[Rfam]
RNA sequence: UCAUGAACUUUGUACCGCGCACAUCCCUUAAUCGGCUAUAGAAAGAGAUGGGCUGUUGAAAGUUACAUGAAGA
Numbered sequence: 001u002c003a004u005g006a007a008c009u010u011u012g013u014a015c016c017g018c019g020c021a022c023a024u025c026c027c028u029u030a031a032u033c034g035g036c037u038a039u040a041g042a043a044a045g046a047g048a049u050g051g052g053c054u055g056u057u058g059a060a061a062g063u064u065a066c067a068u069g070a071a072g073a
Stems, first nucleotide, its partner, number of pairs: 019053002022050004